This 90-nucleotide RNA from Paenibacillus albidus belongs to the Rfam family "c-di-GMP-I riboswitch aptamer".
[Rfam]
RNA sequence: CAUGUAUAAUAGCAAACCGUUCGAAAGAGCGGGACGCAAAGUCCAGGAGUCUAAAACGCUGCGAGGCGUAAUGAUCGUCCGACUGCCAUG
Numbered sequence: 001c002a003u004g005u006a007u008a009a010u011a012g013c014a015a016a017c018c019g020u021u022c023g024a025a026a027g028a029g030c031g032g033g034a035c036g037c038a039a040a041g042u043c044c045a046g047g048a049g050u051c052u053a054a055a056a057c058g059c060u061g062c063g064a065g066g067c068g069u070a071a072u073g074a075u076c077g078u079c080c081g082a083c084u085g086c087c088a089u090g
Stems, first nucleotide, its partner, number of pairs: 012037002017032006040084004046080003049075003056069004
About the family: GEMM was predicted in a large-scale screen for bacterial structured RNA regulatory elements. Its family is annotated with cyclic-di-GMP binding in the Gene Ontology.